[Rfam]
Nucleotides: 117
Base pairs, nucleotide, nucleotide: 004114005113006112007111008110009109010108017029018028019027031097032096033086034085035048036047037046038045043084044083053060066082067081068080069079070078088100089099090098
Number, partner (000 for none) and nucleotide at each position: 001000u002000a003000c004114u005113u006112u007111c008110u009109u010108c011000a012000g013000g014000g015000a016000u017029g018028g019027g020000u021000g022000a023000a024000a025000u026000u027019c028018c029017c030000u031097a032096u033086c034085g035048g036047c037046g038045g039000u040000a041000a042000a043084g044083c045038c046037c047036g048035c049000g050000a051000g052000c053060c054000g055000u056000u057000a058000a059000g060053g061000u062000a063000g064000g065000a066082u067081u068080c069079g070078g071000u072000g073000a074000a075000a076000c077000u078070c079069c080068g081067a082066g083044g084043c085034c086033g087000a088100c089099a090098g091000u092000g093000a094000u095000a096032g097031u098090c099089u100088g101000g102000a103000u104000g105000g106000a107000a108010g109009a110008g111007g112006a113005a114004a115000a116000g117000u
Overview: FMN riboswitch aptamer (RFN element): a 117-nucleotide RNA sequence from Syntrophomonas zehnderi. The family's consensus secondary structure is taken from published work.